[Rfam]
RNA: Small nucleolar RNA SNORD47
Organism: Leptosomus discolor
RNA sequence: AGCCACUGAUGAAAUUUGAUUCUGCCAAAUGAAUUACUAUGAUAUUACAAUUUCCGUUCCACUUUUCUCUGAGGCU
Numbered sequence: 001a002g003c004c005a006c007u008g009a010u011g012a013a014a015u016u017u018g019a020u021u022c023u024g025c026c027a028a029a030u031g032a033a034u035u036a037c038u039a040u041g042a043u044a045u046u047a048c049a050a051u052u053u054c055c056g057u058u059c060c061a062c063u064u065u066u067c068u069c070u071g072a073g074g075c076u
Stems, first nucleotide, its partner, number of pairs: 001076004